The family of this 80-nucleotide RNA sequence from Pangasianodon hypophthalmus is "mir-199 microRNA precursor family". For this family Rfam cites "miRNPs: a novel class of ribonucleoproteins containing numerous microRNAs" (Mourelatos et al., Genes Dev, 2002). From the family's description: This family consists of the microRNA (miRNA) precursor mir-199 which appears to be specific to humans. Animal miRNAs are transcribed as ~70nt precursors and subsequently processed by the Dicer enzyme to give a ~22nt product. The organism belongs to Pangasianodon, within Eukaryota.

[Rfam]
RNA sequence: CCUCCGUCUGCCCAGUGUUCAGACUACCUGUUCAUGGAUAUGUGAGUGUACAGUAGUCUGCACAUUGGUUAGACUGGGCG
Numbered sequence: 001c002c003u004c005c006g007u008c009u010g011c012c013c014a015g016u017g018u019u020c021a022g023a024c025u026a027c028c029u030g031u032u033c034a035u036g037g038a039u040a041u042g043u044g045a046g047u048g049u050a051c052a053g054u055a056g057u058c059u060g061c062a063c064a065u066u067g068g069u070u071a072g073a074c075u076g077g078g079c080g
Stems, first nucleotide, its partner, number of pairs: 012068007020060007028053004033048002